RNA sequence: ACACCGUCGCUUAAAGUGACGGCAUAAUAAUAAAAAAAUGAAAUUCCUCUUUGACGGGCCAAUAGCGAUAUUGGCCAUUUUUUU
Numbered sequence: 001a002c003a004c005c006g007u008c009g010c011u012u013a014a015a016g017u018g019a020c021g022g023c024a025u026a027a028u029a030a031u032a033a034a035a036a037a038a039u040g041a042a043a044u045u046c047c048u049c050u051u052u053g054a055c056g057g058g059c060c061a062a063u064a065g066c067g068a069u070a071u072u073g074g075c076c077a078u079u080u081u082u083u084u
Stems, first nucleotide, its partner, number of pairs: 007019005028035001057076008
The record is an 84-nucleotide RNA sequence from Escherichia coli, which matches "sroB RNA" in Rfam. It is annotated as a small RNA. The organism belongs to Escherichia coli K-12, within Bacteria. On this family, see Overgaard et al., Mol Microbiol 2009: "Switching off small RNA regulation with trap-mRNA".